[Rfam]
RNA sequence: GGGACGGGCCUUUCAGGCAUCCUCUCCCAAACUAUCCAAGGGCCGCCCAUCUGGUGCGGCCUUUUUUUUCGUCUGGU
Numbered sequence: 001g002g003g004a005c006g007g008g009c010c011u012u013u014c015a016g017g018c019a020u021c022c023u024c025u026c027c028c029a030a031a032c033u034a035u036c037c038a039a040g041g042g043c044c045g046c047c048c049a050u051c052u053g054g055u056g057c058g059g060c061c062u063u064u065u066u067u068u069u070c071g072u073c074u075g076g077u
Base pairs, nucleotide, nucleotide: 008018009017010016011015040062041061042060043059044058045057046056048054
RNA: Makes More Granules Regulator RNA (mmgR)